[Rfam]
RNA: c-di-GMP-I riboswitch aptamer
RNA sequence: AAGUGAAAAGGGCAAAUCAUAGGAAACUAUGAGACGCAAAGCCAAGGGCCUACCCGCACUGGACAAAGUGUGAAUGGCAGCCGGUGGCCACA
Numbered sequence: 001a002a003g004u005g006a007a008a009a010g011g012g013c014a015a016a017u018c019a020u021a022g023g024a025a026a027c028u029a030u031g032a033g034a035c036g037c038a039a040a041g042c043c044a045a046g047g048g049c050c051u052a053c054c055c056g057c058a059c060u061g062g063a064c065a066a067a068g069u070g071u072g073a074a075u076g077g078c079a080g081c082c083g084g085u086g087g088c089c090a091c092a
Base pairs, nucleotide, nucleotide: 012037013036017032018031019030020029021028022027041085042084043083046082047081048078049077050076055072056071057070058069059068060067